[Rfam]
RNA sequence: GGCUGGGGCCUCGCCUUGACUGGGCGCAAGAUCCUCUUUAGACUCUUGUACCCCUAAAUUUGGUGGGACUCUGUCCUGCCAUUUUUGCUUUUCUUGCAAGACAAUAGCGUCGCAAGACAACAGUGGAGCUAGUAGA
Numbered sequence: 001g002g003c004u005g006g007g008g009c010c011u012c013g014c015c016u017u018g019a020c021u022g023g024g025c026g027c028a029a030g031a032u033c034c035u036c037u038u039u040a041g042a043c044u045c046u047u048g049u050a051c052c053c054c055u056a057a058a059u060u061u062g063g064u065g066g067g068a069c070u071c072u073g074u075c076c077u078g079c080c081a082u083u084u085u086u087g088c089u090u091u092u093c094u095u096g097c098a099a100g101a102c103a104a105u106a107g108c109g110u111c112g113c114a115a116g117a118c119a120a121c122a123g124u125g126g127a128g129c130u131a132g133u134a135g136a
Stems, first nucleotide, its partner, number of pairs: 004018006022053003026049006034041002061081009103133001105131004109118003
A member of the RNA family "Pseudomonas rpsL leader" from Pseudomonas sp. SDI, 136 nucleotides long. Lineage of the source: Bacteria > Pseudomonadati > Pseudomonadota > Pseudomonadales > Pseudomonas. For this family Rfam cites "Premature terminator analysis sheds light on a hidden world of bacterial transcriptional attenuation" (Naville and Gautheret, Genome Biol, 2010). The family's RNA type in Rfam is cis-regulatory leader.